[Rfam]
A member of the RNA family "OmrA-B family" from Citrobacter sp. JGM124, 88 nucleotides long. It is annotated as a small RNA. The organism belongs to Citrobacter, within Bacteria. The family has 23 seed sequences and 153 matches in Rfam 15.1. It scores 76 bits against the family's covariance model.

RNA sequence: CCCAGAGGUAUUGAUUGGUGAGCAUUCUUGUUACUCAACAGAGUACAGUUCACUUGCACCAGCCUGCGCAUAUGCGCAGGUUUUUUUU
Numbered sequence: 001c002c003c004a005g006a007g008g009u010a011u012u013g014a015u016u017g018g019u020g021a022g023c024a025u026u027c028u029u030g031u032u033a034c035u036c037a038a039c040a041g042a043g044u045a046c047a048g049u050u051c052a053c054u055u056g057c058a059c060c061a062g063c064c065u066g067c068g069c070a071u072a073u074g075c076g077c078a079g080g081u082u083u084u085u086u087u088u
Stems, first nucleotide, its partner, number of pairs: 016061005021050001028045001062081008